[Rfam]
RNA: terC RNA
Organism: Hansschlegelia beijingensis
RNA sequence: AGAACGGUCCGGGCCCCUCUGGCGUUCUUCGUCUUUGCCGAAGCACGUGAUGUCGGACUGCCCCA
Numbered sequence: 001a002g003a004a005c006g007g008u009c010c011g012g013g014c015c016c017c018u019c020u021g022g023c024g025u026u027c028u029u030c031g032u033c034u035u036u037g038c039c040g041a042a043g044c045a046c047g048u049g050a051u052g053u054c055g056g057a058c059u060g061c062c063c064c065a
Base pairs, nucleotide, nucleotide: 006059007058008057009056010055011054012053022048023047024046025045027043028042029041030040031039